[Rfam]
RNA sequence: AAACAGCCCCCUAUGUAUUGAAUCUUUGGUAGUUUUGGCCCCCAAAACCACUUUUGACUUAGUCUUUGCUGACAACUCACAUCCCUUAAAUGAGGUGCCACGUGUCGACCAUUGUGGGUGUCACGUCAGCGAAGACUAAGUCAAAAAUGGCAUUGGGGCCAAAACUGCCAAAGAUCCAAUACAUAGGGGGCUGUUU
Numbered sequence: 001a002a003a004c005a006g007c008c009c010c011c012u013a014u015g016u017a018u019u020g021a022a023u024c025u026u027u028g029g030u031a032g033u034u035u036u037g038g039c040c041c042c043c044a045a046a047a048c049c050a051c052u053u054u055u056g057a058c059u060u061a062g063u064c065u066u067u068g069c070u071g072a073c074a075a076c077u078c079a080c081a082u083c084c085c086u087u088a089a090a091u092g093a094g095g096u097g098c099c100a101c102g103u104g105u106c107g108a109c110c111a112u113u114g115u116g117g118g119u120g121u122c123a124c125g126u127c128a129g130c131g132a133a134g135a136c137u138a139a140g141u142c143a144a145a146a147a148u149g150g151c152a153u154u155g156g157g158g159c160c161a162a163a164a165c166u167g168c169c170a171a172a173g174a175u176c177c178a179a180u181a182c183a184u185a186g187g188g189g190g191c192u193g194u195u196u
Stems, first nucleotide, its partner, number of pairs: 001196002004193005012185009022175019042156004072126002077123001079121006
RNA: MIR2619 microRNA precursor family
Organism: Medicago truncatula